The record is a 99-nucleotide RNA from Gibbsiella quercinecans, which matches "Guanidine-I riboswitch aptamer" in Rfam.
Taxonomically the source falls in Gibbsiella (Bacteria, Pseudomonadati, Pseudomonadota, Enterobacterales).
It scores 87 bits against the family's covariance model.
The base pairs follow the family's consensus structure.
Rfam describes the family as follows. This family represents a conserved RNA structure found upstream of the ykkC and yxkD genes in Bacillus subtilis and related genes in other bacteria. The function of this family is unclear although it has been suggested that it may function to switch on efflux pumps and detoxification systems in response to harmful environmental molecules.
On this family, see Trachman RJ 3rd and Ferre-D'Amare, RNA 2021: "An uncommon [K(+)(Mg(2+))2] metal ion triad imparts stability and selectivity to the Guanidine-I riboswitch".

RNA sequence: GCAAUAGGUCACUAGGGUUCCGGUCUGGCAACAGGCGCUGGUCCGAGAGUGGCCGACCGCCCUCUGGCGGUUACACGGCGGGAUAAAAGCCCGGGAGGC
Numbered sequence: 001g002c003a004a005u006a007g008g009u010c011a012c013u014a015g016g017g018u019u020c021c022g023g024u025c026u027g028g029c030a031a032c033a034g035g036c037g038c039u040g041g042u043c044c045g046a047g048a049g050u051g052g053c054c055g056a057c058c059g060c061c062c063u064c065u066g067g068c069g070g071u072u073a074c075a076c077g078g079c080g081g082g083a084u085a086a087a088a089g090c091c092c093g094g095g096a097g098g099c
Stems, first nucleotide, its partner, number of pairs: 007054006015044002020041002022038001023036005055072007074094001076097001080092003